[Rfam]
RNA sequence: UAGCCGGUGAAAGUCCGGUCGAGGUAAGAGCCAAGUCGCCUCGUAGCUGACGGGCAUCUGGUGGAGAGAUCCUAAGGCUGAAGCCCCGUGACAAAGUAGCUCCGUAAAGGAGUGCGAGCAAAACAGCAGGCCGUAACAUCA
Numbered sequence: 001u002a003g004c005c006g007g008u009g010a011a012a013g014u015c016c017g018g019u020c021g022a023g024g025u026a027a028g029a030g031c032c033a034a035g036u037c038g039c040c041u042c043g044u045a046g047c048u049g050a051c052g053g054g055c056a057u058c059u060g061g062u063g064g065a066g067a068g069a070u071c072c073u074a075a076g077g078c079u080g081a082a083g084c085c086c087c088g089u090g091a092c093a094a095a096g097u098a099g100c101u102c103c104g105u106a107a108a109g110g111a112g113u114g115c116g117a118g119c120a121a122a123a124c125a126g127c128a129g130g131c132c133g134u135a136a137c138a139u140c141a
Stems, first nucleotide, its partner, number of pairs: 020043005050089005055080002058077002064071002096115001099113005118134002
About this RNA: The record is a 141-nucleotide RNA sequence from Cohnella abietis, which matches "Group II catalytic intron D1-D4-4" in Rfam. About the family: Group II introns are found in rRNA, tRNA and mRNA of organelles in fungi, plants and protists, and also in mRNA in bacteria. Its family is annotated with Group II intron splicing in the Gene Ontology. A search with the family's covariance model found it, with a score of 110 bits. Taxonomically the source falls in Cohnella (Bacteria, Bacillati, Bacillota, Caryophanales).